The family of this 155-nucleotide RNA from Salinicoccus roseus is "glmS glucosamine-6-phosphate activated ribozyme aptamer".
It scores 103 bits against the family's covariance model.
The family's consensus secondary structure is taken from published work.
About the family: This entry contains a glucosamine-6-phosphate activated ribozyme that is found in the mRNA for GlmS. GlmS is an enzyme that uses fructose-6-phosphate and glutamine to generate glucosamine-6-phosphate. The ribozyme catalyses self cleavage of the glmS mRNA that is thought to regulate GlmS activity.

RNA sequence: UAAAUCGGAAUAGCGCCUGGGCAAGCAUCGGCUUGCUGACGAGGAGGACAGUGAUCGAUUAUCGGCGGAUACUGUCCCGGAUACUGAAGUAUUCGUAAGGCCAGCUGUUAAAGCCAUCGGGUGACCGACGGGACAGAGCACUGGCAAAAGAUAAC
Numbered sequence: 001u002a003a004a005u006c007g008g009a010a011u012a013g014c015g016c017c018u019g020g021g022c023a024a025g026c027a028u029c030g031g032c033u034u035g036c037u038g039a040c041g042a043g044g045a046g047g048a049c050a051g052u053g054a055u056c057g058a059u060u061a062u063c064g065g066c067g068g069a070u071a072c073u074g075u076c077c078c079g080g081a082u083a084c085u086g087a088a089g090u091a092u093u094c095g096u097a098a099g100g101c102c103a104g105c106u107g108u109u110a111a112a113g114c115c116a117u118c119g120g121g122u123g124a125c126c127g128a129c130g131g132g133a134c135a136g137a138g139c140a141c142u143g144g145c146a147a148a149a150g151a152u153a154a155c
Stems, first nucleotide, its partner, number of pairs: 020037007046077005055065004078095006100145005114131002117128004